[Rfam]
Description:
Shown here is a 369-nucleotide part of an RNA from Candidatus Undinarchaeum marinum, a member of the family "Archaeal large subunit ribosomal RNA". The base pairs follow the family's consensus structure, which is taken from published work. A search with the family's covariance model found it, with a score of 2696 bits. The family is grouped with related families in Rfam's "LSU clan". Taxonomically the source falls in Candidatus Undinarchaeum (Archaea, Nanobdellati, Candidatus Undinarchaeia, Candidatus Undinarchaeales).
RNA sequence: CGAGAUAACGCAGUUAAGGGAAUUCGGCAAAAUGGCCUCGUACCUUCGGAAGAAGGGGUGCCUGUUGUCUGCACUAAGUGUGGAACAGCAGGUCUCAGUGACCAGGGAAGUCGGACUGUUUAAUAAAAACGUAUGGGACUGCUAGUCCGAAAGGAUGUGUACAGUCCCUGAAUCCUGCCCAGUGCCGGUAUGUGAACUCUGGGUUCAACUGGAGGAAGCACCGGUAAACGGCGGGGGUAACUAUAACCCUCUUAAGGUAGCGUAAUACCUUUCCGCCUAAUUAGCGGAUUGCAUGAAUGGACUAACCAGAUUUCCGCUGUCCCUAACUGCUACUCGGCGAAUAUACCAUUGUGGUGAAUAGGCCACAGA
Numbered sequence: 001c002g003a004g005a006u007a008a009c010g011c012a013g014u015u016a017a018g019g020g021a022a023u024u025c026g027g028c029a030a031a032a033u034g035g036c037c038u039c040g041u042a043c044c045u046u047c048g049g050a051a052g053a054a055g056g057g058g059u060g061c062c063u064g065u066u067g068u069c070u071g072c073a074c075u076a077a078g079u080g081u082g083g084a085a086c087a088g089c090a091g092g093u094c095u096c097a098g099u100g101a102c103c104a105g106g107g108a109a110g111u112c113g114g115a116c117u118g119u120u121u122a123a124u125a126a127a128a129a130c131g132u133a134u135g136g137g138a139c140u141g142c143u144a145g146u147c148c149g150a151a152a153g154g155a156u157g158u159g160u161a162c163a164g165u166c167c168c169u170g171a172a173u174c175c176u177g178c179c180c181a182g183u184g185c186c187g188g189u190a191u192g193u194g195a196a197c198u199c200u201g202g203g204u205u206c207a208a209c210u211g212g213a214g215g216a217a218g219c220a221c222c223g224g225u226a227a228a229c230g231g232c233g234g235g236g237g238u239a240a241c242u243a244u245a246a247c248c249c250u251c252u253u254a255a256g257g258u259a260g261c262g263u264a265a266u267a268c269c270u271u272u273c274c275g276c277c278u279a280a281u282u283a284g285c286g287g288a289u290u291g292c293a294u295g296a297a298u299g300g301a302c303u304a305a306c307c308a309g310a311u312u313u314c315c316g317c318u319g320u321c322c323c324u325a326a327c328u329g330c331u332a333c334u335c336g337g338c339g340a341a342u343a344u345a346c347c348a349u350u351g352u353g354g355u356g357a358a359u360a361g362g363c364c365a366c367a368g369a
Stems, first nucleotide, its partner, number of pairs: 001336004010330007018322003035059005044049001060093009094098001106315007113307002117131003135168007142159001145156004173301003177232003182229002184225005191220003198213005233251006252256001272288005350367005